[Rfam]
RNA sequence: GGAGGCGUAUUGUGAUGGUUGCAGCUGGGCAUUGAUCGCGUUCAAUUUAGCAGAUCUGCUCAGAUCUUGUGUCCGUUGCGUGUACCGCUUCUAUGUUACCGACGCUCCCGCUGCCUACGUCGCACGGUAGAGCGUCCUGUUGCAUUCUCUUGCGAAUGCGCGGGUAUAAACUGACGCGAUUUCCAAAUUGGGUUCGAGUAGGUCAGUAACGUUAACUUGUCGACGCCUCCAGUCGUUCAGGCACUGCUGAGCAGUCCGCCCUUUUUGCUU
Numbered sequence: 001g002g003a004g005g006c007g008u009a010u011u012g013u014g015a016u017g018g019u020u021g022c023a024g025c026u027g028g029g030c031a032u033u034g035a036u037c038g039c040g041u042u043c044a045a046u047u048u049a050g051c052a053g054a055u056c057u058g059c060u061c062a063g064a065u066c067u068u069g070u071g072u073c074c075g076u077u078g079c080g081u082g083u084a085c086c087g088c089u090u091c092u093a094u095g096u097u098a099c100c101g102a103c104g105c106u107c108c109c110g111c112u113g114c115c116u117a118c119g120u121c122g123c124a125c126g127g128u129a130g131a132g133c134g135u136c137c138u139g140u141u142g143c144a145u146u147c148u149c150u151u152g153c154g155a156a157u158g159c160g161c162g163g164g165u166a167u168a169a170a171c172u173g174a175c176g177c178g179a180u181u182u183c184c185a186a187a188u189u190g191g192g193u194u195c196g197a198g199u200a201g202g203u204c205a206g207u208a209a210c211g212u213u214a215a216c217u218u219g220u221c222g223a224c225g226c227c228u229c230c231a232g233u234c235g236u237u238c239a240g241g242c243a244c245u246g247c248u249g250a251g252c253a254g255u256c257c258g259c260c261c262u263u264u265u266u267g268c269u270u
Base pairs, nucleotide, nucleotide: 001230002229003228004227005226006225007224008223012079013078014077015076016075025063026062027061029059030058031057034056035055036054037053038051039050240260241259242258243255244254245253246252247251
The record is a 270-nucleotide RNA sequence from Ladona fulva, which matches "Arthropod 7SK RNA" in Rfam. On this family, see Gruber et al., Mol Biol Evol 2008: "Arthropod 7SK RNA". NCBI's taxonomy places the organism under Eukaryota, Metazoa, Pterygota, Libelluloidea, Ladona. Rfam classes the family as a non-coding RNA gene. Its Rfam clan is "7SK clan". The family has 19 seed sequences and 229 matches in Rfam 15.1. Pairs were carried over by alignment from the consensus structure, which is taken from published work. It scores 74 bits against the family's covariance model.